A member of the RNA family "mir-181 microRNA precursor family" from Carassius auratus, 82 nucleotides long. A reference for the family is Ambros (2001), "microRNAs: tiny regulators with great potential", Cell. Its family is annotated with miRNA-mediated post-transcriptional gene silencing and RISC complex in the Gene Ontology.
[Rfam]
RNA sequence: GUGCAUUCUGGGAACAUUCAACGCUGUCGGUGAGUUUGGAUGCAUAAGAAACCAUCGACCGUUGGCUGUGCCCUGAAAUCAC
Numbered sequence: 001g002u003g004c005a006u007u008c009u010g011g012g013a014a015c016a017u018u019c020a021a022c023g024c025u026g027u028c029g030g031u032g033a034g035u036u037u038g039g040a041u042g043c044a045u046a047a048g049a050a051a052c053c054a055u056c057g058a059c060c061g062u063u064g065g066c067u068g069u070g071c072c073c074u075g076a077a078a079u080c081a082c
Stems, first nucleotide, its partner, number of pairs: 001082003006077003015068002018065006026059007034052004